[Rfam]
Shown here is a 182-nucleotide RNA sequence from Prosthecobacter gellanilyticus, a member of the family "6S / SsrS RNA". The match comes from Rfam's covariance-model search (57 bits).
RNA sequence: CCUUUCCUGCGGUGCUCGUCCUCAGACUGUUGUGGCCCGACCCGUUUUUAUGACACCGGGAGCUUGUGACCUGGGUUGUCAUGUCAUGCCUUCACUGGAAGACAGCGCCCUUGUUCACGGGCACCCACCUCGUCUCCUUUGGGAUUCGAGGCCCCCAAUCGAACGGCACAUGUGGGAUCUCA
Numbered sequence: 001c002c003u004u005u006c007c008u009g010c011g012g013u014g015c016u017c018g019u020c021c022u023c024a025g026a027c028u029g030u031u032g033u034g035g036c037c038c039g040a041c042c043c044g045u046u047u048u049u050a051u052g053a054c055a056c057c058g059g060g061a062g063c064u065u066g067u068g069a070c071c072u073g074g075g076u077u078g079u080c081a082u083g084u085c086a087u088g089c090c091u092u093c094a095c096u097g098g099a100a101g102a103c104a105g106c107g108c109c110c111u112u113g114u115u116c117a118c119g120g121g122c123a124c125c126c127a128c129c130u131c132g133u134c135u136c137c138u139u140u141g142g143g144a145u146u147c148g149a150g151g152c153c154c155c156c157a158a159u160c161g162a163a164c165g166g167c168a169c170a171u172g173u174g175g176g177a178u179c180u181c182a
Stems, first nucleotide, its partner, number of pairs: 005177007012169004017165003034153004038148003042143002058126003062122006071113001073111003077107001083103002089098002
Rfam classes the family as a non-coding RNA gene. The family's consensus secondary structure is taken from published work.